[Rfam]
RNA sequence: AAAGCGGGGAUUGUGUGUAUCGGCUUUGUGCUUGAAUCAAUGCACUUUUUGCCGAAAGAGUUCCCUGCUAUAUCGAUUUGGGGAAGGUGGGCAGUUGUGUUUCAUCUAUUUCAUCGAUUCUUCAACAAUCAUCUUCCCCACAUCU
Numbered sequence: 001a002a003a004g005c006g007g008g009g010a011u012u013g014u015g016u017g018u019a020u021c022g023g024c025u026u027u028g029u030g031c032u033u034g035a036a037u038c039a040a041u042g043c044a045c046u047u048u049u050u051g052c053c054g055a056a057a058g059a060g061u062u063c064c065c066u067g068c069u070a071u072a073u074c075g076a077u078u079u080g081g082g083g084a085a086g087g088u089g090g091g092c093a094g095u096u097g098u099g100u101u102u103c104a105u106c107u108a109u110u111u112c113a114u115c116g117a118u119u120c121u122u123c124a125a126c127a128a129u130c131a132u133c134u135u136c137c138c139c140a141c142a143u144c145u
Base pairs, nucleotide, nucleotide: 004068005067006066007065008064009063010062015045016044017043018042019041020040080139081138082137083136084135085134086133087132088131089130090129094126095125096124097123
Dot-bracket structure: ...(((((((....((((((...................))))))................)))))))...........(((((((((((...((((.........................))))..)))))))))))......
Rfam assigns this 145-nucleotide RNA sequence from Tetracentron sinense to the family "small nucleolar RNA snoR135". The family's consensus secondary structure was predicted with RNAalifold.